[Rfam]
RNA sequence: CCUCUUGGCCCUGUCUCCCAACCCUUGUACCAGUGUGUGUCUCAUCCCUGGUACAGGUACGGGGAGGCAGGGACCUGGGG
Numbered sequence: 001c002c003u004c005u006u007g008g009c010c011c012u013g014u015c016u017c018c019c020a021a022c023c024c025u026u027g028u029a030c031c032a033g034u035g036u037g038u039g040u041c042u043c044a045u046c047c048c049u050g051g052u053a054c055a056g057g058u059a060c061g062g063g064g065a066g067g068c069a070g071g072g073a074c075c076u077g078g079g080g
Stems, first nucleotide, its partner, number of pairs: 010071003014067002016064003022057002026055007
RNA: mir-150 microRNA precursor family